The family of this 81-nucleotide RNA sequence from Oryzias latipes is "mir-26 microRNA precursor family". The family has 82 seed sequences and 2,251 matches in Rfam 15.1.
RNA sequence: CUGGAACCAGGUUCAAGUAAUCCAGGAUAGGCUUUCUGCAUCUGAUUUGGCCUAUACUUGAUUACUUGCACUUGGAACCAG
Numbered sequence: 001c002u003g004g005a006a007c008c009a010g011g012u013u014c015a016a017g018u019a020a021u022c023c024a025g026g027a028u029a030g031g032c033u034u035u036c037u038g039c040a041u042c043u044g045a046u047u048u049g050g051c052c053u054a055u056a057c058u059u060g061a062u063u064a065c066u067u068g069c070a071c072u073u074g075g076a077a078c079c080a081g
Stems, first nucleotide, its partner, number of pairs: 002080003007075006014068009024058002027055007